[Rfam]
RNA: Glycine riboswitch aptamer
Organism: Salinibacterium sp.
RNA sequence: CACGGCCACUCUGAAAAGCGAAGCCCAGCAGUCAACAACCGGGCUUCCGCCGAAGGUGAAAGCGACCACGUCCAUCCGGACGAGAUCUGGUCGUGAAACUCUCAGGCUCAUGACAGAGGGGGAGUU
Numbered sequence: 001c002a003c004g005g006c007c008a009c010u011c012u013g014a015a016a017a018g019c020g021a022a023g024c025c026c027a028g029c030a031g032u033c034a035a036c037a038a039c040c041g042g043g044c045u046u047c048c049g050c051c052g053a054a055g056g057u058g059a060a061a062g063c064g065a066c067c068a069c070g071u072c073c074a075u076c077c078g079g080a081c082g083a084g085a086u087c088u089g090g091u092c093g094u095g096a097a098a099c100u101c102u103c104a105g106g107c108u109c110a111u112g113a114c115a116g117a118g119g120g121g122g123a124g125u126u
Base pairs, nucleotide, nucleotide: 006121007120009118010117011116012115013114020047021046022045023044024043025042026041049107050106051105052103053102056101058099062094063093064092065091066090067089068088